RNA sequence: UGCUCGUCGCCUGGAACUUUCGUCUCAACCUAAGACACGACUAGGUGAGCAAAGUUUCAGGUGUGGGAGCGC
Numbered sequence: 001u002g003c004u005c006g007u008c009g010c011c012u013g014g015a016a017c018u019u020u021c022g023u024c025u026c027a028a029c030c031u032a033a034g035a036c037a038c039g040a041c042u043a044g045g046u047g048a049g050c051a052a053a054g055u056u057u058c059a060g061g062u063g064u065g066g067g068a069g070c071g072c
Stems, first nucleotide, its partner, number of pairs: 002070004007065001008063007016055005024049004029045003